[Rfam]
RNA sequence: CGCCUCCCCCUUUGGAGGCGUCUCCUCCCUGAACCUUGGCCACCCCAUGCUCUGCAUGGGGUGGUUUUUUCUGUGAGG
Numbered sequence: 001c002g003c004c005u006c007c008c009c010c011u012u013u014g015g016a017g018g019c020g021u022c023u024c025c026u027c028c029c030u031g032a033a034c035c036u037u038g039g040c041c042a043c044c045c046c047a048u049g050c051u052c053u054g055c056a057u058g059g060g061g062u063g064g065u066u067u068u069u070u071c072u073g074u075g076a077g078g
Stems, first nucleotide, its partner, number of pairs: 009018003041063009
The family of this 78-nucleotide RNA from Sphingobium cupriresistens is "Makes More Granules Regulator RNA (mmgR)". Its family is annotated with response to nitrogen compound, protein binding and DNA-templated transcription, termination in the Gene Ontology. It scores 41 bits against the family's covariance model. The family's RNA type in Rfam is small RNA. Rfam describes the family as follows. SuhB later renamed mmgR (makes more granules regulator) was a putative non-coding RNA found multiple times in the Agrobacterium tumefaciens genome and related alpha-proteobacteria. The pairing is the family consensus, mapped onto this sequence.